RNA: MIR473 microRNA precursor family
RNA sequence: AAUGCUCACUCUCCCUCAAGGGCUUCUGGCAAUGCCUACCUAAUAUCUAUAAUUAGGAAAUGGCAAUGCCCGAGGUCUUUGGGGAGAGUGGACAU
Number, nucleotide and partner (000 for none) at each position: 001a000002a000003u000004g000005c000006u091007c090008a089009c088010u087011c086012u085013c084014c083015c082016u000017c081018a080019a079020g078021g077022g076023c075024u074025u073026c072027u000028g000029g000030c000031a000032a000033u000034g000035c000036c000037u000038a000039c000040c000041u000042a000043a000044u000045a000046u000047c000048u000049a000050u000051a000052a000053u000054u000055a000056g000057g000058a000059a000060a000061u000062g000063g000064c000065a000066a000067u000068g000069c000070c000071c000072g026073a025074g024075g023076u022077c021078u020079u019080u018081g017082g015083g014084g013085a012086g011087a010088g009089u008090g007091g006092a000093c000094a000095u000